Notes: Shown here is a 110-nucleotide sequence from Terrihabitans soli, a member of the family "Guanidine-I riboswitch aptamer". Gene Ontology term of the family: regulation of gene expression. The match comes from Rfam's covariance-model search (78 bits). The source organism's lineage runs through Bacteria, Pseudomonadota, Alphaproteobacteria, Hyphomicrobiales and Terrihabitans. From the family's description: This family represents a conserved RNA structure found upstream of the ykkC and yxkD genes in Bacillus subtilis and related genes in other bacteria. The function of this family is unclear although it has been suggested that it may function to switch on efflux pumps and detoxification systems in response to harmful environmental molecules.
RNA sequence: GCAUAAUGCGUCUAGGGUUCCGGCCUGCCUCAUCUGGCGGGCGCUGGUCCGAGAGAUCGCACUCCCGCCCUCAUCUGGCGGAGCCACGGCGGGACAAAAGCCCGGGAGAU
Dot-bracket structure: ......((((((..((...(((((((((........)))))).).)).))....))).)))((((.(((.......))))))).(.[...(((.......))).)..]..